[Rfam]
RNA sequence: CUGGUUCCGGUUCACGCUCCCACAUCCGGUGGUGGCGACCCGGCGACC
Numbered sequence: 001c002u003g004g005u006u007c008c009g010g011u012u013c014a015c016g017c018u019c020c021c022a023c024a025u026c027c028g029g030u031g032g033u034g035g036c037g038a039c040c041c042g043g044c045g046a047c048c
Base pairs, nucleotide, nucleotide: 003048004047005046007043008042009041010040015037016036017035018034020032021031022030023029
L31-Actinobacteria ribosomal protein leader: a 48-nucleotide RNA from Nocardioides sp. Root151. Its Rfam clan is "Ribosomal Protein L31 Leader clan". Taxonomically the source falls in Nocardioides (Bacteria, Bacillati, Actinomycetes, Nocardioidaceae).